Xanthomonadaceae sRNA asX1: a 118-nucleotide RNA from Xylella fastidiosa. The literature on the family includes a 2011 paper in Nucleic Acids Res by Schmidtke et al., "Genome-wide transcriptome analysis of the plant pathogen Xanthomonas identifies sRNAs with putative virulence functions". Rfam's curators put it in the seed alignment. The organism belongs to Xylella fastidiosa, within Bacteria.

[Rfam]
RNA sequence: CACCUGCCGCAGCAUUUGCGGCUACAGGCGCAAAGGUCGGGAUUGGAAUAGGGGCUGGCCACGCGUGCGGUGGGGAAGCAAGGGGCUGGCAGGUCAGAGGGCUGCCAGCCUUUGAUGU
Numbered sequence: 001c002a003c004c005u006g007c008c009g010c011a012g013c014a015u016u017u018g019c020g021g022c023u024a025c026a027g028g029c030g031c032a033a034a035g036g037u038c039g040g041g042a043u044u045g046g047a048a049u050a051g052g053g054g055c056u057g058g059c060c061a062c063g064c065g066u067g068c069g070g071u072g073g074g075g076a077a078g079c080a081a082g083g084g085g086c087u088g089g090c091a092g093g094u095c096a097g098a099g100g101g102c103u104g105c106c107a108g109c110c111u112u113u114g115a116u117g118u
Stems, first nucleotide, its partner, number of pairs: 003074009012064002015033002018031003035060006043052002081113012094101002